Shown here is a 70-nucleotide RNA from Tetraodon nigroviridis, a member of the family "Small nucleolar RNA R38". Rfam classes the family as a C/D-box small nucleolar RNA. The literature on the family includes a 1995 paper in Trends Biochem Sci by Bachellerie et al., "Antisense snoRNAs: a family of nucleolar RNAs with long complementarities to rRNA". Pairs were carried over by alignment from the consensus structure, which was predicted with PFOLD. snoR38 is a C/D box small nucleolar RNA conserved across yeast, human, Arabidopsis and rice. NCBI's taxonomy places the organism under Eukaryota, Euteleosteomorpha, Ctenosquamata, Tetraodontoidei, Tetraodon. Rfam 15.1 lists 2,295 matches to the family in 1,305 species. Rfam's curators put it in the seed alignment.

[Rfam]
RNA sequence: UGUAGCCAAUGAUGAUACAAGUUAUCCCUGUCUGAACUGAAGUGUGGAGUUGUGGUAACCUGAGGCUCAG
Numbered sequence: 001u002g003u004a005g006c007c008a009a010u011g012a013u014g015a016u017a018c019a020a021g022u023u024a025u026c027c028c029u030g031u032c033u034g035a036a037c038u039g040a041a042g043u044g045u046g047g048a049g050u051u052g053u054g055g056u057a058a059c060c061u062g063a064g065g066c067u068c069a070g
Stems, first nucleotide, its partner, number of pairs: 001070001004067004